[Rfam]
RNA sequence: GGUAGUAGCAAAUACUCAAGUGAGAACCUUGAGGACUGAAGUUGGAGAAGGGUUCCAUGUCAACAGCGUUUGCACAUGGGUGAGUCGGUCCUUAGCCAACGGAGAGAUCCGUGCUAGGCGAGACAUUAGUUGUCACGCUAUGGACGAAAGGUUAUCGGGUUAAGAUUCCCGAACCCGGACACGAAAUAAAUGAGACCUCGGUCUCUGGUGCGGUAACGCAAACGAACUCGGAGACGCCCGUGGAGGCACCAGGGAAGAGAUACGUUCUUUUCUUCGUAAGAGGUGCGAAGUCCCUGGAAAGGUGUCAUGCCGAGAUAGGGACAGGCGGCCUCGAAAGAGCACCUCGUUUCACGAGUUGUGCCUGGGACCCCUUUACGGGCCCUUGCAAAUCCGAGGGAGAGUCUAUGAUUUUCGUGCCGGGCCGUACCUAUAUCCGCAUCAGGUCUCCAAGGUGAACAGCCUCUAGUCAC
Numbered sequence: 001g002g003u004a005g006u007a008g009c010a011a012a013u014a015c016u017c018a019a020g021u022g023a024g025a026a027c028c029u030u031g032a033g034g035a036c037u038g039a040a041g042u043u044g045g046a047g048a049a050g051g052g053u054u055c056c057a058u059g060u061c062a063a064c065a066g067c068g069u070u071u072g073c074a075c076a077u078g079g080g081u082g083a084g085u086c087g088g089u090c091c092u093u094a095g096c097c098a099a100c101g102g103a104g105a106g107a108u109c110c111g112u113g114c115u116a117g118g119c120g121a122g123a124c125a126u127u128a129g130u131u132g133u134c135a136c137g138c139u140a141u142g143g144a145c146g147a148a149a150g151g152u153u154a155u156c157g158g159g160u161u162a163a164g165a166u167u168c169c170c171g172a173a174c175c176c177g178g179a180c181a182c183g184a185a186a187u188a189a190a191u192g193a194g195a196c197c198u199c200g201g202u203c204u205c206u207g208g209u210g211c212g213g214u215a216a217c218g219c220a221a222a223c224g225a226a227c228u229c230g231g232a233g234a235c236g237c238c239c240g241u242g243g244a245g246g247c248a249c250c251a252g253g254g255a256a257g258a259g260a261u262a263c264g265u266u267c268u269u270u271u272c273u274u275c276g277u278a279a280g281a282g283g284u285g286c287g288a289a290g291u292c293c294c295u296g297g298a299a300a301g302g303u304g305u306c307a308u309g310c311c312g313a314g315a316u317a318g319g320g321a322c323a324g325g326c327g328g329c330c331u332c333g334a335a336a337g338a339g340c341a342c343c344u345c346g347u348u349u350c351a352c353g354a355g356u357u358g359u360g361c362c363u364g365g366g367a368c369c370c371c372u373u374u375a376c377g378g379g380c381c382c383u384u385g386c387a388a389a390u391c392c393g394a395g396g397g398a399g400a401g402u403c404u405a406u407g408a409u410u411u412u413c414g415u416g417c418c419g420g421g422c423c424g425u426a427c428c429u430a431u432a433u434c435c436g437c438a439u440c441a442g443g444u445c446u447c448c449a450a451g452g453u454g455a456a457c458a459g460c461c462u463c464u465a466g467u468c469a470c
Base pairs, nucleotide, nucleotide: 015033016032017031018030019029020028034468035467036466037465044448045447046446047445050428051427055079056078057077058076059075060074064072065071086424087423088422090151091150095145097113098112101110102109103108120138122136155172156171157170158169159168175420176419177418178417199414200413201412204408205407209220210219211218212217227395228394229393230392231391232390236380237379238378239377241375242374243373244372245371246370249365250364251363254275255274256273257272258271280332281331282330283329284328291321292320293319294318295317296316301311302310303309340358341357343355344354345353346352434443435442450462451461452460453459